The family of this 84-nucleotide sequence from Betanecrovirus nicotianae is "Necrovirus cap-independent translation element". It is one of the family's seed sequences. Taxonomically the source falls in Betanecrovirus nicotianae (Viruses, Tolucaviricetes, Tombusviridae, Betanecrovirus). The base pairs follow the family's consensus structure.
RNA sequence: UUGACGUACAAGCCGGAUCCUGGGAAACAGGUUUAACGGGCUCACUGUGGUGGUGGGCCGUCGAUACACUUGUAUGUGCCCCAA
Dot-bracket structure: ((((((((((((.((...((((.....)))).......((((((.........))))))..)).....)))))))))....)))
Numbered sequence: 001u002u003g004a005c006g007u008a009c010a011a012g013c014c015g016g017a018u019c020c021u022g023g024g025a026a027a028c029a030g031g032u033u034u035a036a037c038g039g040g041c042u043c044a045c046u047g048u049g050g051u052g053g054u055g056g057g058c059c060g061u062c063g064a065u066a067c068a069c070u071u072g073u074a075u076g077u078g079c080c081c082c083a084a
Stems, first nucleotide, its partner, number of pairs: 001084003004077009014063002019031004039059006